[Rfam]
The record is a 178-nucleotide sequence from Photobacterium damselae, which matches "Manganese Mn2+ riboswitch aptamer (yybP-ykoY)" in Rfam. This RNA was originally discovered in E. coli during a large scale screen and was named SraF. The family was later found to exist upstream of related families of protein genes in many bacteria, including the the yybP and ykoK genes in B. subtilis. The pairing is the family consensus, mapped onto this sequence. The match comes from Rfam's covariance-model search (57 bits).
RNA sequence: CCUUUGGGGAGUAGCCUCUAAUCUAGUGUUGCAAUAAGACUAGAAUAGACAUUCAUCAACAUAAUUGAAGCAAAAUCUUCAUGGUGAAUGUGACCGUUUUGGGUUUGGCAAGACCAUAGGUAAGACCGCAUAAACCGGGGUGGGGAGUGCGAGUUUUACUAUUGGUUCUAAUAAUAAU
Numbered sequence: 001c002c003u004u005u006g007g008g009g010a011g012u013a014g015c016c017u018c019u020a021a022u023c024u025a026g027u028g029u030u031g032c033a034a035u036a037a038g039a040c041u042a043g044a045a046u047a048g049a050c051a052u053u054c055a056u057c058a059a060c061a062u063a064a065u066u067g068a069a070g071c072a073a074a075a076u077c078u079u080c081a082u083g084g085u086g087a088a089u090g091u092g093a094c095c096g097u098u099u100u101g102g103g104u105u106u107g108g109c110a111a112g113a114c115c116a117u118a119g120g121u122a123a124g125a126c127c128g129c130a131u132a133a134a135c136c137g138g139g140g141u142g143g144g145g146a147g148u149g150c151g152a153g154u155u156u157u158a159c160u161a162u163u164g165g166u167u168c169u170a171a172u173a174a175u176a177a178u
Stems, first nucleotide, its partner, number of pairs: 019047002049091010066081005097177002